[Rfam]
Rfam assigns this 77-nucleotide RNA sequence from Alligator sinensis to the family "Mammalian CPEB3 ribozyme". The source organism's lineage runs through Eukaryota, Chordata, Craniata, Sauria and Alligator. It scores 38 bits against the family's covariance model.

RNA sequence: GGUCGCAAGUUUGAGGCCAUAACAGACGCGCUCAUGGCGUGGCCUGUCAGAUGCCAACAAAAUCUGCAAAUUCUGAU
Number, nucleotide and partner (000 for none) at each position: 001g000002g000003u000004c000005g000006c000007a000008a000009g000010u000011u000012u000013g000014a000015g044016g043017c042018c041019a000020u000021a077022a000023c075024a074025g073026a072027c000028g040029c039030g038031c000032u000033c000034a000035u000036g000037g000038c030039g029040u028041g018042g017043c016044c015045u000046g000047u000048c066049a065050g064051a063052u062053g000054c000055c000056a000057a000058c000059a000060a000061a000062a052063u051064c050065u049066g048067c000068a000069a000070a000071u000072u026073c025074u024075g023076a000077u021